[Rfam]
Rfam assigns this 132-nucleotide RNA from Myotis davidii to the family "Small nucleolar RNA SNORA31". The literature on the family includes a 2001 paper in EMBO J by Huttenhofer et al., "RNomics: an experimental approach that identifies 201 candidates for novel, small, non-messenger RNAs in mouse". Pairs were carried over by alignment from the consensus structure, which was predicted with RNAalifold. Rfam classes the family as an H/ACA-box small nucleolar RNA. The source organism's lineage runs through Eukaryota, Bilateria, Craniata, Euteleostomi and Myotis.

RNA sequence: GUGCAUCUAUUUGACAGACCUGGAGCAGUUACGGUUGCUGCCAAGGUUCCCGUGCAGAUGCAAGAAAAAAGGGUCCUCGCGCUUUCUGUCUGUCUGAUUGUGGCAGCCAAGAUUGAAUGGGGGAAUACAGUG
Numbered sequence: 001g002u003g004c005a006u007c008u009a010u011u012u013g014a015c016a017g018a019c020c021u022g023g024a025g026c027a028g029u030u031a032c033g034g035u036u037g038c039u040g041c042c043a044a045g046g047u048u049c050c051c052g053u054g055c056a057g058a059u060g061c062a063a064g065a066a067a068a069a070a071g072g073g074u075c076c077u078c079g080c081g082c083u084u085u086c087u088g089u090c091u092g093u094c095u096g097a098u099u100g101u102g103g104c105a106g107c108c109a110a111g112a113u114u115g116a117a118u119g120g121g122g123g124a125a126u127a128c129a130g131u132g
Base pairs, nucleotide, nucleotide: 002062003061004060005059006058007057008056012052013051017048018047019046020045024039025038026037027036028035029034074124075123076122077121078120082115085112086111087110090106091105092104093103094102